[Rfam]
RNA sequence: UUCAUGAAGCGGCCCAUGCGUUGAAAACGCAUAUGGGAAUGGCACAAUCGACUUGACGCCGAGUGUAAACGAGGGGUCGCUACCUUUA
Numbered sequence: 001u002u003c004a005u006g007a008a009g010c011g012g013c014c015c016a017u018g019c020g021u022u023g024a025a026a027a028c029g030c031a032u033a034u035g036g037g038a039a040u041g042g043c044a045c046a047a048u049c050g051a052c053u054u055g056a057c058g059c060c061g062a063g064u065g066u067a068a069a070c071g072a073g074g075g076g077u078c079g080c081u082a083c084c085u086u087u088a
Base pairs, nucleotide, nucleotide: 009045011043013041016032017031018030019029020028021027055078056077057076059074060073063070064069
RNA: GA-cis RNA